[Rfam]
RNA sequence: AUGGGGUUCGAAUGCGCCCGGUGACGCUGGUUCGCCAUGGCGUGGGAAACGCCCCAAAGAGUG
Numbered sequence: 001a002u003g004g005g006g007u008u009c010g011a012a013u014g015c016g017c018c019c020g021g022u023g024a025c026g027c028u029g030g031u032u033c034g035c036c037a038u039g040g041c042g043u044g045g046g047a048a049a050c051g052c053c054c055c056a057a058a059g060a061g062u063g
Base pairs, nucleotide, nucleotide: 002056003055004054005053006052007051014043015042016041017040018039020036022034023033024032
Overview
Trypanosomatid snoRNA TB8Cs3H1: a 63-nucleotide RNA sequence from Wallacemonas collosoma. The family has 7 seed sequences and 38 matches in Rfam 15.1. The source organism's lineage runs through Eukaryota, Discoba, Euglenozoa, Metakinetoplastina and Wallacemonas.